[Rfam]
RNA sequence: CAAUGAAGGAAACAUGGUAAUGUGCAAAGAAAUUGAAUUGGGUCUUUAGGCCUGCCCUCUCUGAUGCCAUUUGGCUUUGAUUUAGGGGCAUGAUUCCACAGAAAAACA
Numbered sequence: 001c002a003a004u005g006a007a008g009g010a011a012a013c014a015u016g017g018u019a020a021u022g023u024g025c026a027a028a029g030a031a032a033u034u035g036a037a038u039u040g041g042g043u044c045u046u047u048a049g050g051c052c053u054g055c056c057c058u059c060u061c062u063g064a065u066g067c068c069a070u071u072u073g074g075c076u077u078u079g080a081u082u083u084a085g086g087g088g089c090a091u092g093a094u095u096c097c098a099c100a101g102a103a104a105a106a107c108a
Stems, first nucleotide, its partner, number of pairs: 013024003040091001042089003050081001052079001054075003
The family of this 108-nucleotide RNA from Rhododendron simsii is "Small nucleolar RNA snoR100". Lineage of the source: Eukaryota > Gunneridae > Pentapetalae > Ericaceae > Rhododendron.